[Rfam]
RNA sequence: UGAUGCUAGGGUCAAAAGGUCUAAGCCCACAUGAGCUUGCUCAUAGGUGGGUGAAAGACCUUUUGACCCGCCCCGAUAUGAGCAUAAAAGUGGGAUGAUAAUCCCACGAUAUGCGAAUAUUGGGUAGGAUUGUGGGAGUGCGUAGCACGGAGCAAUCCGUAGGCAUCA
Numbered sequence: 001u002g003a004u005g006c007u008a009g010g011g012u013c014a015a016a017a018g019g020u021c022u023a024a025g026c027c028c029a030c031a032u033g034a035g036c037u038u039g040c041u042c043a044u045a046g047g048u049g050g051g052u053g054a055a056a057g058a059c060c061u062u063u064u065g066a067c068c069c070g071c072c073c074c075g076a077u078a079u080g081a082g083c084a085u086a087a088a089a090g091u092g093g094g095a096u097g098a099u100a101a102u103c104c105c106a107c108g109a110u111a112u113g114c115g116a117a118u119a120u121u122g123g124g125u126a127g128g129a130u131u132g133u134g135g136g137a138g139u140g141c142g143u144a145g146c147a148c149g150g151a152g153c154a155a156u157c158c159g160u161a162g163g164c165a166u167c168a
Stems, first nucleotide, its partner, number of pairs: 001168007011067004017061006026051005031044005072124008082114004090107007127158007138148004
Shown here is a 168-nucleotide RNA from [Ruminococcus] lactaris, a member of the family "Clostridiales-1 RNA".
The base pairs follow the family's consensus structure, which is taken from published work.
The family has 194 seed sequences and 1,172 matches in Rfam 15.1.